This 111-nucleotide sequence from Saccharomonospora marina belongs to the Rfam family "TPP riboswitch aptamer (THI element)".
Taxonomically the source falls in Saccharomonospora marina (Bacteria, Bacillati, Pseudonocardiales, Pseudonocardiaceae).
Vitamin B(1) in its active form thiamin pyrophosphate (TPP) is an essential coenzyme that is synthesised by coupling of pyrimidine and thiazole moieties in bacteria.

[Rfam]
RNA sequence: CACCUCUGCCACGGGAGUCCGGCGUAGCCGGGCUGAGAGGUGGGCUGAGCCCCACGACCGUUCGCACCUGAUCCGGAUCAUGCCGGCGAAGGAAGGCUCGCGCCAUCCUUG
Numbered sequence: 001c002a003c004c005u006c007u008g009c010c011a012c013g014g015g016a017g018u019c020c021g022g023c024g025u026a027g028c029c030g031g032g033c034u035g036a037g038a039g040g041u042g043g044g045c046u047g048a049g050c051c052c053c054a055c056g057a058c059c060g061u062u063c064g065c066a067c068c069u070g071a072u073c074c075g076g077a078u079c080a081u082g083c084c085g086g087c088g089a090a091g092g093a094a095g096g097c098u099c100g101c102g103c104c105a106u107c108c109u110u111g
Stems, first nucleotide, its partner, number of pairs: 008097003011061004017033005040055005067092003073086004